[Rfam]
RNA sequence: UCACGUUUGUUUCGUUUCAGAAUCCAAACGCUUUGCCAGUAUUAAAGUCACGGUAAAGCGUAGGAAUUCUAAAGCAAAACUGAA
Dot-bracket structure: .........(((.((((.(((.(.(..(((((((.((..............)).)))))))..).).))).)))))))......
Numbered sequence: 001u002c003a004c005g006u007u008u009g010u011u012u013c014g015u016u017u018c019a020g021a022a023u024c025c026a027a028a029c030g031c032u033u034u035g036c037c038a039g040u041a042u043u044a045a046a047g048u049c050a051c052g053g054u055a056a057a058g059c060g061u062a063g064g065a066a067u068u069c070u071a072a073a074g075c076a077a078a079a080c081u082g083a084a
Stems, first nucleotide, its partner, number of pairs: 010078003014075004019070003023066001025064001028061007036053002

The record is an 84-nucleotide RNA from Pseudolycoriella hygida, which matches "mir-927 microRNA precursor family" in Rfam. For this family Rfam cites "Evolutionary flux of canonical microRNAs and mirtrons in Drosophila" (Berezikov et al., Nat Genet, 2010).